The record is a 92-nucleotide sequence from Xenopus tropicalis, which matches "Small nucleolar SNORD12/SNORD106" in Rfam. The family is grouped with related families in Rfam's "SNORD12 clan". Rfam classes the family as a C/D-box small nucleolar RNA. Rfam links the family to the GO terms nucleolus and RNA processing.
[Rfam]
RNA sequence: UCUGCUGUAUGUGAUGACUAGACUUUUUUCCCCAGCAGAUCGACACUGUUGACCAUAAUCUGAUUUAAGCCAAACAUUGUCUGAUACACAGA
Numbered sequence: 001u002c003u004g005c006u007g008u009a010u011g012u013g014a015u016g017a018c019u020a021g022a023c024u025u026u027u028u029u030c031c032c033c034a035g036c037a038g039a040u041c042g043a044c045a046c047u048g049u050u051g052a053c054c055a056u057a058a059u060c061u062g063a064u065u066u067a068a069g070c071c072a073a074a075c076a077u078u079g080u081c082u083g084a085u086a087c088a089c090a091g092a
Base pairs, nucleotide, nucleotide: 001092002091003090004089006088007087008086009085